RNA sequence: CUAGCAUAUUAUUUGGAGAAUUAUUUUCCUAAAAUAUUUUUAUGAAAAAUAGUAUCUUGGGCUACACGCUUAUACAUAAUGCAACGUUAUUGCUAUAAAAUACAACAGCGAUAGUCAGUAGCUAUAAAAGGUGUGUGGGAAACCCUUUCGCGAAUACUAAAGUUGUGGUGAAGAAAAAUUGUGGAUAAGCUAGCUGGU
Dot-bracket structure: ((((.(((((((((................................))))))))).)))).......((((((.(((...........................(((((..((((.....((...........................))....))))..)))))..............))).))))))........
RNA: RT-16 RNA